Plastid-psbA-1 3UTR RNA: a 116-nucleotide RNA from Cephalotus follicularis. The family is grouped with related families in Rfam's "Plastid-psbA 3UTR RNA clan". The source organism's lineage runs through Eukaryota, Euphyllophyta, eudicotyledons, rosids and Cephalotus.
RNA sequence: GUUGAAGCUCCAUCUACAAAUGGAUAAGACUUUGUUUUUAGUGUAUACGAGUUCUUGAAAAUUUAGGAGCAAUAACCAAUUUCUUGUUGUAUCAAGAAGGUUGGUUAUUGCUCCUA
Numbered sequence: 001g002u003u004g005a006a007g008c009u010c011c012a013u014c015u016a017c018a019a020a021u022g023g024a025u026a027a028g029a030c031u032u033u034g035u036u037u038u039u040a041g042u043g044u045a046u047a048c049g050a051g052u053u054c055u056u057g058a059a060a061a062u063u064u065a066g067g068a069g070c071a072a073u074a075a076c077c078a079a080u081u082u083c084u085u086g087u088u089g090u091a092u093c094a095a096g097a098a099g100g101u102u103g104g105u106u107a108u109u110g111c112u113c114c115u116a
Base pairs, nucleotide, nucleotide: 009024010023011022012021013020064116065115066114067113068112069111070110071109072108073107074106075105077103078102079101081098082097083096084095085094